Shown here is a 92-nucleotide sequence from Talaromyces marneffei, a member of the family "A. fumigatus snoRNA Afu_263". The base pairs follow the family's consensus structure. Taxonomically the source falls in Talaromyces marneffei (Eukaryota, Fungi, Ascomycota, Eurotiomycetes). It is one of the family's seed sequences. Its family is annotated with RNA processing and nucleolus in the Gene Ontology. By type it is a C/D-box small nucleolar RNA.

RNA sequence: UAUGAUGAACAACAAAUUUAAAGCAUAGUUCACCUGAAAGUCUUGGACUUCAUGAACGACAAACAUUUACCAUCUUUCACCUUUAUCUGAUA
Numbered sequence: 001u002a003u004g005a006u007g008a009a010c011a012a013c014a015a016a017u018u019u020a021a022a023g024c025a026u027a028g029u030u031c032a033c034c035u036g037a038a039a040g041u042c043u044u045g046g047a048c049u050u051c052a053u054g055a056a057c058g059a060c061a062a063a064c065a066u067u068u069a070c071c072a073u074c075u076u077u078c079a080c081c082u083u084u085a086u087c088u089g090a091u092a
Stems, first nucleotide, its partner, number of pairs: 003015001006014002028057005038050004